Overview
A member of the RNA family "Small nucleolar RNA SNORD113/SNORD114 family" from Delphinapterus leucas, 72 nucleotides long. The imprinted human domain at 14q32 contains two clusters of tandemly repeated small nucleolar RNAs named 14q(I) and 14q(II) snoRNAs. These two clusters are named SNORD113 and SNORD114 respectively in the HGNC approved gene symbol nomenclature. The snoRNAs found in both clusters are clearly related and are represented here by a single family. These snoRNAs are intron encoded and are processed from the tissue-specific non-coding human MEG8 RNA, which lies downstream of the imprinted genes DLK1 and GTL2. snoRNAs 14q(I) and 14q(II) differ from previously identified C/D box snoRNAs in their expression profiles and lack of complementarity to rRNA and snRNA. Homologues of these snoRNAs are found in the imprinted non-coding mouse transcript Rian, and in the rat non-coding Bsr (brain-specific repetitive) RNA. Clan: SNORD74 clan. Taxonomically the source falls in Delphinapterus (Eukaryota, Deuterostomia, Vertebrata, Mammalia). Gene Ontology terms of the family: RNA processing and nucleolus. Rfam classes the family as a C/D-box small nucleolar RNA. Pairs were carried over by alignment from the consensus structure, which is taken from published work.
[Rfam]
RNA sequence: UGGAUCAAUGAUGACUACCCGUGGCGUAAGAGUCGUGUAUGAUGAAUACGUGUCUGGAACUCUGAGGCCCAA
Numbered sequence: 001u002g003g004a005u006c007a008a009u010g011a012u013g014a015c016u017a018c019c020c021g022u023g024g025c026g027u028a029a030g031a032g033u034c035g036u037g038u039a040u041g042a043u044g045a046a047u048a049c050g051u052g053u054c055u056g057g058a059a060c061u062c063u064g065a066g067g068c069c070c071a072a
Stems, first nucleotide, its partner, number of pairs: 002070002005067002